[Rfam]
Nucleotides: 104
Base pairs, nucleotide, nucleotide: 010091011090012089013088014087015086016085018084019083021081022080023079024078025077027075028074029073030072031071032070033069034068035067038066040064041063042062043061044060045059046058047057
Number, partner (000 for none) and nucleotide at each position: 001000c002000a003000g004000c005000g006000g007000a008000g009000u010091g011090c012089g013088u014087g015086u016085a017000c018084g019083g020000a021081c022080u023079c024078u025077g026000c027075c028074c029073g030072g031071g032070g033069c034068g035067g036000a037000u038066g039000c040064u041063c042062u043061g044060g045059u046058g047057u048000a049000c050000u051000u052000c053000c054000c055000c056000g057047a058046c059045a060044u061043c062042a063041g064040a065000u066038c067035c068034c069033g070032c071031c072030c073029c074028g075027g076000a077025c078024a079023g080022g081021g082000c083019c084018c085016u086015a087014u088013g089012c090011g091010c092000a093000c094000c095000c096000c097000a098000a099000c100000a101000a102000u103000c104000c

mraW RNA: a 104-nucleotide RNA from Corynebacterium tapiri. NCBI's taxonomy places the organism under Bacteria, Bacillati, Actinomycetes, Mycobacteriales, Corynebacterium. The family's consensus secondary structure is taken from published work. Rfam 15.1 lists 851 matches to the family in 821 species.